[Rfam]
The record is a 76-nucleotide sequence from Amphibacillus xylanus, which matches "Glycine riboswitch aptamer" in Rfam. It scores 47 bits against the family's covariance model.

RNA sequence: GGAGCAGCUUCUGGAGAGCUCGCUUAGGCGACACCGAAGGAUUCACAAUCUCAGGUAGAAGGACAGAAGACAACAA
Numbered sequence: 001g002g003a004g005c006a007g008c009u010u011c012u013g014g015a016g017a018g019c020u021c022g023c024u025u026a027g028g029c030g031a032c033a034c035c036g037a038a039g040g041a042u043u044c045a046c047a048a049u050c051u052c053a054g055g056u057a058g059a060a061g062g063a064c065a066g067a068a069g070a071c072a073a074c075a076a
Base pairs, nucleotide, nucleotide: 008069009068010067011066012065013064020031021030022029023028033056034055035054036052037051040050041049042048